The family of this 109-nucleotide RNA sequence from Rhinopithecus roxellana is "Y RNA".
Y RNAs are components of the Ro ribonucleoprotein particle (Ro RNP), in association with Ro60 and La proteins.
A reference for the family is Mosig et al. (2007), "Evolution of the vertebrate Y RNA cluster", Theory Biosci.
Lineage of the source: Eukaryota > Dipnotetrapodomorpha > Tetrapoda > Theria > Rhinopithecus.
It is annotated as a non-coding RNA gene.
[Rfam]
RNA sequence: GGUUGAUCCAAAGGGAGUGAGUUAUCCAAACUGUUCACAGUGAAUUACAGAUCAAACUUCUUGUUCUACUUUUUCCUCGCUUCUCACUACUGCACUUAACUAGUCUUAA
Numbered sequence: 001g002g003u004u005g006a007u008c009c010a011a012a013g014g015g016a017g018u019g020a021g022u023u024a025u026c027c028a029a030a031c032u033g034u035u036c037a038c039a040g041u042g043a044a045u046u047a048c049a050g051a052u053c054a055a056a057c058u059u060c061u062u063g064u065u066c067u068a069c070u071u072u073u074u075c076c077u078c079g080c081u082u083c084u085c086a087c088u089a090c091u092g093c094a095c096u097u098a099a100c101u102a103g104u105c106u107u108a109a
Base pairs, nucleotide, nucleotide: 001105002104003103004102005101007099010097011096014093016088017087018086019085020084021083039071040070043067
Dot-bracket structure: (((((.(..((..(.((((((.................((..(.......................)..))...........))))))....)..)).).)))))....